Rfam assigns this 264-nucleotide RNA from Oceanobacillus piezotolerans to the family "BsrG". Rfam describes the family as follows. bsrE, bsrG and bsrH pair through intermolecular interactions with antisense sRNAs. They form type I toxin/antitoxin system that includes an mRNA encoding for a short, toxic peptide (bsrE, bsrG and bsrH) and an antitoxin that is comprised of an antisense RNA. bsrG encodes a 39-amino-acid toxin, and the 180 nucleotide antisense sRNA called SR4 acts as the antitoxin (they overlap by 123 nucleotides). SR4 interaction with the 3'UTR of bsrG RNA promotes bsrG degradation and inhibits its translation. The organism belongs to Oceanobacillus, within Bacteria. It scores 57 bits against the family's covariance model. Its family is annotated with autolysis and toxin activity in the Gene Ontology. For this family Rfam cites "One antitoxin--two functions: SR4 controls toxin mRNA decay and translation" (Jahn and Brantl, Nucleic Acids Res, 2013).
[Rfam]
RNA sequence: ACAAUGGACAAGCUUCCACAUGAGGGGUGGCACACCAUUUCCUACUAGGGAUACUCCCUAGCAAGGGAGGUGAUGCUUAUGGAUAUGGAGAAUGUACUGAUGCUGAUGAUUUCAUUCGGAUCGUUAAUUGCAUUUAUCAUGUCCGAGAAAAACAAAUAACCCCUCAUGUGCUCUAGCCCGGCCGUGAGGGAUUAUCCUUUCAUGUGCCAACCCCCUUAUGAUGGGGUUAGUCUAUUGUACCGUUCCAUGUAACAGCAUGGAGCG
Numbered sequence: 001a002c003a004a005u006g007g008a009c010a011a012g013c014u015u016c017c018a019c020a021u022g023a024g025g026g027g028u029g030g031c032a033c034a035c036c037a038u039u040u041c042c043u044a045c046u047a048g049g050g051a052u053a054c055u056c057c058c059u060a061g062c063a064a065g066g067g068a069g070g071u072g073a074u075g076c077u078u079a080u081g082g083a084u085a086u087g088g089a090g091a092a093u094g095u096a097c098u099g100a101u102g103c104u105g106a107u108g109a110u111u112u113c114a115u116u117c118g119g120a121u122c123g124u125u126a127a128u129u130g131c132a133u134u135u136a137u138c139a140u141g142u143c144c145g146a147g148a149a150a151a152a153c154a155a156a157u158a159a160c161c162c163c164u165c166a167u168g169u170g171c172u173c174u175a176g177c178c179c180g181g182c183c184g185u186g187a188g189g190g191a192u193u194a195u196c197c198u199u200u201c202a203u204g205u206g207c208c209a210a211c212c213c214c215c216u217u218a219u220g221a222u223g224g225g226g227u228u229a230g231u232c233u234a235u236u237g238u239a240c241c242g243u244u245c246c247a248u249g250u251a252a253c254a255g256c257a258u259g260g261a262g263c264g
Stems, first nucleotide, its partner, number of pairs: 001238005007232003011228001014210002017170008026161003033072002039069004081144007095108002119135002183204003211226004241264010